[Rfam]
The family of this 117-nucleotide RNA from an Olavius algarvensis Gamma 3 endosymbiont is "ALIL pseudoknot". The family's consensus secondary structure is taken from published work. By type it is a cis-regulatory element. For this family Rfam cites "Apical loop-internal loop RNA pseudoknots: a new type of stimulator of -1 translational frameshifting in bacteria" (Mazauric et al., J Biol Chem, 2008). The organism belongs to Gammaproteobacteria, within Bacteria. A search with the family's covariance model found it, with a score of 108 bits.
RNA sequence: UGCCUAUUUCGCCCAGGCGGAGCUCGGCCGCCGACCGAAAUAAUGGUGUCGUUCAUCGACGAUCACCGGGUCGAUUACGGAGUCGAGCCAAUCUGCAAGCGAUUGCCGAUUGCUCCG
Numbered sequence: 001u002g003c004c005u006a007u008u009u010c011g012c013c014c015a016g017g018c019g020g021a022g023c024u025c026g027g028c029c030g031c032c033g034a035c036c037g038a039a040a041u042a043a044u045g046g047u048g049u050c051g052u053u054c055a056u057c058g059a060c061g062a063u064c065a066c067c068g069g070g071u072c073g074a075u076u077a078c079g080g081a082g083u084c085g086a087g088c089c090a091a092u093c094u095g096c097a098a099g100c101g102a103u104u105g106c107c108g109a110u111u112g113c114u115c116c117g
Base pairs, nucleotide, nucleotide: 016032017031018030019029020028078117079116080115081114082113089112090111092109093108095106096105097104098103
Dot-bracket structure: ...............(((((.......))))).............................................(((((......((.((.((((....)))).)).)))))))